Source information: The record is a 74-nucleotide RNA from Janibacter alkaliphilus, which matches "tRNA" in Rfam. A search with the family's covariance model found it, with a score of 73 bits.
RNA sequence: GGGGCGGUAGCUCAGUCGGUCAGAGCAGCGGACUCAUAAUCCGUCGGUCCUGGGUUCAAGCCCCAGCCGCCCCA
Numbered sequence: 001g002g003g004g005c006g007g008u009a010g011c012u013c014a015g016u017c018g019g020u021c022a023g024a025g026c027a028g029c030g031g032a033c034u035c036a037u038a039a040u041c042c043g044u045c046g047g048u049c050c051u052g053g054g055u056u057c058a059a060g061c062c063c064c065a066g067c068c069g070c071c072c073c074a
Stems, first nucleotide, its partner, number of pairs: 001073007010026004028044005050066005
Dot-bracket structure: (((((((..((((.........)))).(((((.......))))).....(((((.......)))))))))))).